[Rfam]
RNA sequence: GCCUCACUCUAGCAGCACAGAGCAGCCAUAAAUGGUUAGGCUGAGUUUAAUGGCUGCUUUGUGCUGCUAGAGUGAGGC
Number, nucleotide and partner (000 for none) at each position: 001g078002c077003c076004u000005c074006a073007c072008u000009c000010u071011a068012g067013c066014a065015g064016c063017a062018c061019a000020g058021a000022g057023c056024a055025g054026c053027c052028a051029u050030a000031a000032a000033u000034g000035g000036u000037u000038a000039g000040g000041c000042u000043g000044a000045g000046u000047u000048u000049a000050a029051u028052g027053g026054c025055u024056g023057c022058u020059u000060u000061g018062u017063g016064c015065u014066g013067c012068u011069a000070g000071a010072g007073u006074g005075a000076g003077g002078c001
A member of the RNA family "mir-16 microRNA precursor family" from Chelonia mydas, 78 nucleotides long. Lineage of the source: Eukaryota > Opisthokonta > Dipnotetrapodomorpha > Durocryptodira > Chelonia. Rfam links the family to the GO terms miRNA-mediated post-transcriptional gene silencing and RISC complex. It scores 45 bits against the family's covariance model. The base pairs follow the family's consensus structure, which was predicted with PFOLD. The family has 14 seed sequences and 4,705 matches in Rfam 15.1. The family is grouped with related families in Rfam's "mir-15 clan". On this family, see Calin et al., Proc Natl Acad Sci U S A 2002: "Frequent deletions and down-regulation of micro- RNA genes miR15 and miR16 at 13q14 in chronic lymphocytic leukemia".